Rfam assigns this 218-nucleotide RNA from Eremothecium cymbalariae to the family "Small nucleolar RNA snR35".
[Rfam]
RNA sequence: AAACAAGUAAAAUCGUGCGGAUUUUAACAUCCAGGACUCUAAACCGUGUUGUUUUGGUUGCGUCUUCCUUCGAUCUCUCUGAGAUUGGUGGGAAGGCUUUGUUAUCAAAGCGUCAAGUCCAUCGGAGAGAUCAAUAUUUUUUGUUCAUCUUAGUGCCCUUUCCUCUAGCAAGGUAUUUAUCUCUACUUGCUGGUGGAGGGCCGGUAGAACUUACAUAC
Number, nucleotide and partner (000 for none) at each position: 001a000002a000003a000004c000005a000006a000007g000008u026009a025010a024011a023012a022013u021014c020015g000016u000017g000018c000019g000020g014021a013022u012023u011024u010025u009026a008027a000028c000029a000030u126031c125032c124033a000034g120035g119036a118037c117038u000039c000040u000041a000042a000043a000044c000045c000046g000047u000048g000049u000050u000051g111052u110053u109054u108055u107056g106057g105058u104059u000060g102061c101062g100063u000064c000065u000066u000067c000068c000069u000070u000071c000072g000073a000074u000075c000076u000077c000078u000079c000080u000081g000082a000083g000084a000085u000086u000087g000088g000089u000090g000091g000092g000093a000094a000095g000096g000097c000098u000099u000100u062101g061102u060103u000104a058105u057106c056107a055108a054109a053110g052111c051112g000113u000114c000115a000116a000117g037118u036119c035120c034121a000122u000123c000124g032125g031126a030127g000128a000129g000130a000131u000132c000133a000134a000135u000136a000137u000138u000139u000140u000141u000142u000143g000144u000145u000146c000147a000148u209149c000150u207151u206152a205153g000154u000155g201156c200157c199158c198159u197160u000161u000162c196163c195164u000165c193166u192167a191168g190169c189170a000171a000172g000173g181174u000175a000176u000177u000178u000179a000180u000181c173182u000183c000184u000185a000186c000187u000188u000189g169190c168191u167192g166193g165194u000195g163196g162197a159198g158199g157200g156201c155202c000203g000204g000205u152206a151207g150208a000209a148210c000211u000212u000213a000214c000215a000216u000217a000218c000
By type it is an H/ACA-box small nucleolar RNA.